[Rfam]
RNA sequence: UUUGGGGGAAAUAGCGGUCCGUUAAGUUGGGGAAAAAUACAUCAUCCCUUGAGAUAAAAUUAGGUUUGUUUCCUUUUACUCCUAAAAUCUUUUUAUCGUGGGUAAAAAGAAUCAAUAUGGGGUAUAAAAGGAACCAAAUUUAAAUUUAACUCAAGAGGUUUUGAUGUUGUUUUCCUCAAUAGGACGGAACACUAUUUUCCCCAAU
Dot-bracket structure: ..((((((((((((.(.((((((..((((((((((.....((((((..(((((.((((.(((((((((.(((((((((((((......(((((((((...))))))))).........))))))..))))))).))))))))).)))).)))))..))...)))).....))))))))))..)))))).).))))))))))))..

The family of this 205-nucleotide sequence from Medicago truncatula is "MIR2670 microRNA precursor family". Rfam links the family to the GO terms RISC complex and miRNA-mediated post-transcriptional gene silencing. The base pairs follow the family's consensus structure, which was predicted with RNAalifold.